A member of the RNA family "Potassium channel RNA editing signal" from Sinocyclocheilus rhinocerous, 114 nucleotides long. Taxonomically the source falls in Sinocyclocheilus (Eukaryota, Metazoa, Bilateria, Euteleostomi). A search with the family's covariance model found it, with a score of 58 bits. On this family, see Bhalla et al., Nat Struct Mol Biol 2004: "Control of human potassium channel inactivation by editing of a small mRNA hairpin". Rfam's curators write: This family represents a group of sequences related to the human potassium channel Kv1.1 hairpin element which directs the efficient modification of an adenosine to inosine by an adenosine deaminase acting on RNA (ADAR). The ADAR modification causes an isoleucine/valine recoding event which lies in the ion-conducting pore of the potassium channel. Rfam 15.1 lists 14,095 matches to the family in 1,000 species.
RNA sequence: GUGGGCUAUGGGGAUGUAUAUCCACAGACAGCAGCUGGGAGAAUUGUAGCUACACUUUGCAUUCUCUGUGGGUUGCUUGUGGUUUCUUUACCCAUCACCAUCAUCAUGAAUAAC
Numbered sequence: 001g002u003g004g005g006c007u008a009u010g011g012g013g014a015u016g017u018a019u020a021u022c023c024a025c026a027g028a029c030a031g032c033a034g035c036u037g038g039g040a041g042a043a044u045u046g047u048a049g050c051u052a053c054a055c056u057u058u059g060c061a062u063u064c065u066c067u068g069u070g071g072g073u074u075g076c077u078u079g080u081g082g083u084u085u086c087u088u089u090a091c092c093c094a095u096c097a098c099c100a101u102c103a104u105c106a107u108g109a110a111u112a113a114c
Stems, first nucleotide, its partner, number of pairs: 001114002004111001007108005013102004020095002037077002040074001049063001051061001